Bacteroidete tryptophan peptide leader RNA: a 137-nucleotide RNA sequence from Bacteroides graminisolvens. Gene Ontology terms of the family: S-adenosylmethionine metabolic process and regulation of gene expression.
Nucleotides: 137
Stems, first nucleotide, its partner, number of pairs: 036105003040101003044097001046095002049092002055087002058084003063078001065076003
Number, partner (000 for none) and nucleotide at each position: 001000c002000c003000g004000a005000a006000u007000a008000a009000g010000a011000a012000c013000a014000a015000a016000a017000u018000a019000u020000a021000a022000u023000g024000a025000g026000a027000a028000c029000a030000a031000u032000u033000u034000u035000a036105g037104u038103a039000a040101a041100u042099a043000c044097a045000g046095g047094u048000u049092g050091g051000u052000g053000g054000c055087g056086c057000u058084a059083c060082u061000u062000a063078c064000a065076a066075c067074u068000c069000c070000a071000u072000a073000a074067g075066g076065u077000c078063g079000u080000a081000a082060g083059g084058u085000a086056g087055c088000a089000g090000u091050c092049u093000c094047g095046u096000g097044u098000a099042u100041a101040u102000a103038u104037a105036c106000u107000a108000a109000a110000g111000a112000a113000g114000a115000u116000a117000u118000u119000a120000c121000a122000g123000u124000u125000a126000a127000a128000g129000a130000g131000c132000c133000c134000u135000g136000u137000c